[Rfam]
RNA sequence: AUCAUGGUACUUCUGUUCUGGUGUGGACCAGAGCAGCCCGGUGCGAACCACGGGGAGGUGGAAUUCCUAUGA
Numbered sequence: 001a002u003c004a005u006g007g008u009a010c011u012u013c014u015g016u017u018c019u020g021g022u023g024u025g026g027a028c029c030a031g032a033g034c035a036g037c038c039c040g041g042u043g044c045g046a047a048c049c050a051c052g053g054g055g056a057g058g059u060g061g062a063a064u065u066c067c068u069a070u071g072a
Stems, first nucleotide, its partner, number of pairs: 012069001013036010037055003041051003056068003